[Rfam]
RNA sequence: GGGGGGUGUGAUGCCACGCUCCCUGGGGGGUAUGAUCCCAUGCUCCCUGGGGGGGUGUGACCCCGUGCUCCCU
Numbered sequence: 001g002g003g004g005g006g007u008g009u010g011a012u013g014c015c016a017c018g019c020u021c022c023c024u025g026g027g028g029g030g031u032a033u034g035a036u037c038c039c040a041u042g043c044u045c046c047c048u049g050g051g052g053g054g055g056u057g058u059g060a061c062c063c064c065g066u067g068c069u070c071c072c073u
Stems, first nucleotide, its partner, number of pairs: 001072005015059004020053010031042004
RNA: mir-3689 microRNA precursor family
Organism: Theropithecus gelada